This 102-nucleotide sequence belongs to the Rfam family "skipping-rope RNA".
[Rfam]
RNA sequence: ACAAACAGAGGACGGAACGGGCAGCCGUCGCCCCUCGGAACAACUCUUACAGCUGGGAGCCGAGGUUCGGAGAUGCGGGAAAAGUCACCCCGCCUGUUUUGC
Numbered sequence: 001a002c003a004a005a006c007a008g009a010g011g012a013c014g015g016a017a018c019g020g021g022c023a024g025c026c027g028u029c030g031c032c033c034c035u036c037g038g039a040a041c042a043a044c045u046c047u048u049a050c051a052g053c054u055g056g057g058a059g060c061c062g063a064g065g066u067u068c069g070g071a072g073a074u075g076c077g078g079g080a081a082a083a084g085u086c087a088c089c090c091c092g093c094c095u096g097u098u099u100u101g102c
Stems, first nucleotide, its partner, number of pairs: 002101004006096003011029005020086003031070001033065006075093005